[Rfam]
RNA sequence: GCAAUACAUCAUGAGUGAAUAAGAAAUUAUUCCGCCAACCUGCUUGAGGAAGUAAGGUGGCAGAGAAUGUGGUCUUAAUUGACAAUUAGGUUCCUCGUUG
Numbered sequence: 001g002c003a004a005u006a007c008a009u010c011a012u013g014a015g016u017g018a019a020u021a022a023g024a025a026a027u028u029a030u031u032c033c034g035c036c037a038a039c040c041u042g043c044u045u046g047a048g049g050a051a052g053u054a055a056g057g058u059g060g061c062a063g064a065g066a067a068u069g070u071g072g073u074c075u076u077a078a079u080u081g082a083c084a085a086u087u088a089g090g091u092u093c094c095u096c097g098u099u100g
Base pairs, nucleotide, nucleotide: 006070007069008068009067015033017032018031019030020029021028034061035060036059039057040056041055042053043052044051046095048093049092050091072083073082074081
The family of this 100-nucleotide sequence is "SAM-I/IV (S-adenosyl methionine) riboswitch aptamer". The sequence is in the family's curated seed alignment. A reference for the family is Weinberg et al. (2008), "The aptamer core of SAM-IV riboswitches mimics the ligand-binding site of SAM-I riboswitches", RNA. Its family is annotated with regulation of gene expression and S-adenosylmethionine metabolic process in the Gene Ontology.